[Rfam]
RNA sequence: ACGAAUCAACACGGGAGUCCCGAGUAUGUGGGGCUGAGAGGGGGCCGCUGGGCCCCGACCGUCAUACCUGAUCCGGAUCAUGCCGGCGCAGGGAGUGAGGUGGAGCGAAGU
Numbered sequence: 001a002c003g004a005a006u007c008a009a010c011a012c013g014g015g016a017g018u019c020c021c022g023a024g025u026a027u028g029u030g031g032g033g034c035u036g037a038g039a040g041g042g043g044g045c046c047g048c049u050g051g052g053c054c055c056c057g058a059c060c061g062u063c064a065u066a067c068c069u070g071a072u073c074c075g076g077a078u079c080a081u082g083c084c085g086g087c088g089c090a091g092g093g094a095g096u097g098a099g100g101u102g103g104a105g106c107g108a109a110g111u
Base pairs, nucleotide, nucleotide: 006099009096010095011062012061013060014059017034018033019032020031021030041056042055043054044053045052067092068091069090070089073086074085075084076083
Dot-bracket structure: .....(..((((((..(((((........)))))......(((((......)))))..))))....((((..((((......))))..))))..))..)............